[Rfam]
RNA sequence: UCACUCUGGUUUCCCUUCAAAACGCAUAAAUCUUUCGCCUUUUACUAAAGAUUUCCGUGGAGGGGAACAUUCAAAUGAGUCUAACUCUAUUUUUUGAUGUUCGGCGUAAGCUGGACU
Number, nucleotide and partner (000 for none) at each position: 001u000002c000003a080004c079005u078006c077007u000008g000009g068010u067011u066012u065013c064014c063015c062016u061017u060018c059019a058020a000021a000022a000023c000024g000025c000026a000027u000028a054029a053030a052031u051032c050033u049034u048035u047036c000037g000038c000039c000040u000041u000042u000043u000044a000045c000046u000047a035048a034049a033050g032051a031052u030053u029054u028055c000056c000057g000058u019059g018060g017061a016062g015063g014064g013065g012066a011067a010068c009069a000070u000071u000072c000073a000074a000075a000076u000077g006078a005079g004080u003081c000082u000083a000084a000085c000086u000087c000088u000089a000090u000091u000092u000093u000094u000095u000096g000097a117098u000099g116100u115101u114102c113103g112104g111105c000106g000107u000108a000109a000110g000111c104112u103113g102114g101115a100116c099117u097
U5 spliceosomal RNA: a 117-nucleotide RNA from Eumeta japonica. The base pairs follow the family's consensus structure, which is taken from published work. Rfam classes the family as a spliceosomal small nuclear RNA. It scores 98 bits against the family's covariance model. The family has 180 seed sequences and 28,527 matches in Rfam 15.1.